[Rfam]
MIR5084 microRNA precursor family: a 122-nucleotide RNA sequence from Triticum aestivum.
Nucleotides: 122
Stems, first nucleotide, its partner, number of pairs: 002122008011113022034090007051073002054070003058066001060064001
Number, partner (000 for none) and nucleotide at each position: 001000u002122a003121a004120g005119g006118g007117g008116u009115u010000a011113g012112g013111a014110u015109c016108c017107u018106c019105u020104g021103c022102a023101g024100u025099a026098c027097u028096g029095u030094a031093u032092g033000a034090u035089g036088u037087u038086g039085u040084a041000c042000a043000g044000u045000c046000a047000c048000u049000g050000c051073c052072a053000g054070g055069u056068g057000a058066g059000a060064c061000c062000u063000g064060g065000c066058c067000c068056c069055a070054c071000a072052u073051g074000u075000u076000a077000u078000c079000c080000a081000u082000a083000c084040u085039a086038c087037a088036g089035c090034a091000c092032c093031a094030u095029a096028c097027g098026g099025u100024a101023c102022u103021g104020c105019a106018g107017a108016g109015g110014a111013u112012c113011u114000a115009a116008a117007c118006c119005c120004c121003u122002u
Rfam 15.1 lists 152 matches to the family in 5 species. Taxonomically the source falls in Triticum (Eukaryota, Viridiplantae, Streptophytina, Magnoliopsida).